The record is a 378-nucleotide RNA sequence from Persephonella marina, which matches "Bacterial RNase P class A" in Rfam. Rfam describes the family as follows. Ribonuclease P (RNase P) is a ubiquitous endoribonuclease, found in archaea, bacteria and eukarya as well as chloroplasts and mitochondria. The base pairs follow the family's consensus structure, which is taken from published work.
RNA sequence: GGUGGUUUCCGGUGCAGCCGCUCCUGCUUUCGCAGGGGAGGAAAGUCCGGACUCCACAGGGCAGGAAGCUGCCGAAAGGCAGGCAGGGGUAACCCUGCGGAAAGGGCAACAGAGAGUAGACCGCCUGUCCCGAUAAACUUAAAGUAGGUGUUAGCACCGAAAGGUUUAUCCGGACAGGUAAGGGUGAAACGGUGGGGUAAGAGCCCACCAGCUGUCAGCGUGAGCUGACAGGCUCGGCAACCCCCUUCCGGAGCAAUCCCAAAUAGGGGAACGUUUGAGGGUGGCCCGCCCGAAUGCCUGAAAAGGCUACGUUCCCGGGUAGGGAGCUGAGAUAAAUGGCUGCGUCAACAGAAUCCGGCUUACUGGAGGCCACCGGUA
Numbered sequence: 001g002g003u004g005g006u007u008u009c010c011g012g013u014g015c016a017g018c019c020g021c022u023c024c025u026g027c028u029u030u031c032g033c034a035g036g037g038g039a040g041g042a043a044a045g046u047c048c049g050g051a052c053u054c055c056a057c058a059g060g061g062c063a064g065g066a067a068g069c070u071g072c073c074g075a076a077a078g079g080c081a082g083g084c085a086g087g088g089g090u091a092a093c094c095c096u097g098c099g100g101a102a103a104g105g106g107c108a109a110c111a112g113a114g115a116g117u118a119g120a121c122c123g124c125c126u127g128u129c130c131c132g133a134u135a136a137a138c139u140u141a142a143a144g145u146a147g148g149u150g151u152u153a154g155c156a157c158c159g160a161a162a163g164g165u166u167u168a169u170c171c172g173g174a175c176a177g178g179u180a181a182g183g184g185u186g187a188a189a190c191g192g193u194g195g196g197g198u199a200a201g202a203g204c205c206c207a208c209c210a211g212c213u214g215u216c217a218g219c220g221u222g223a224g225c226u227g228a229c230a231g232g233c234u235c236g237g238c239a240a241c242c243c244c245c246u247u248c249c250g251g252a253g254c255a256a257u258c259c260c261a262a263a264u265a266g267g268g269g270a271a272c273g274u275u276u277g278a279g280g281g282u283g284g285c286c287c288g289c290c291c292g293a294a295u296g297c298c299u300g301a302a303a304a305g306g307c308u309a310c311g312u313u314c315c316c317g318g319g320u321a322g323g324g325a326g327c328u329g330a331g332a333u334a335a336a337u338g339g340c341u342g343c344g345u346c347a348a349c350a351g352a353a354u355c356c357g358g359c360u361u362a363c364u365g366g367a368g369g370c371c372a373c374c375g376g377u378a
Base pairs, nucleotide, nucleotide: 001374002373003372004371005370006369007368008367009366010365011363013344014343015342016341017340018339019338021038022037023036024035025034026033027032043361044360045359047358048357049356050355051354052253053252054251055250064249065248066247067246068245069082070081071080072079073078083098085096086095087094088093099244100243104242105241106238107237121183122182123179124178125177126176127175128174129173130172191209192208193207194206195205196204211233212231213230214229215228216227217226218225219224257325258324259323260322267316268315269314270313271312272311295309296308298306299305